[Rfam]
RNA: Bacterial antisense RNA HPnc0260
Organism: Hydrogenimonas thermophila
RNA sequence: UAAAAACUAAUAUUUUUAUGCAAUAAAAUUCUUGCAUAAGUGCGCUUUCAAAAAUUUUAACAUUUAGUUGUUAAGUUUUAACUUAUUUAAGAAGAUGGUGGCCACGACAGGACUUGAACCUGUGACCACUACCA
Numbered sequence: 001u002a003a004a005a006a007c008u009a010a011u012a013u014u015u016u017u018a019u020g021c022a023a024u025a026a027a028a029u030u031c032u033u034g035c036a037u038a039a040g041u042g043c044g045c046u047u048u049c050a051a052a053a054a055u056u057u058u059a060a061c062a063u064u065u066a067g068u069u070g071u072u073a074a075g076u077u078u079u080a081a082c083u084u085a086u087u088u089a090a091g092a093a094g095a096u097g098g099u100g101g102c103c104a105c106g107a108c109a110g111g112a113c114u115u116g117a118a119c120c121u122g123u124g125a126c127c128a129c130u131a132c133c134a
Base pairs, nucleotide, nucleotide: 015040016039017038021034022033023032058073059072060071096131097130098129099128100127101126105124106123108122109121110120111119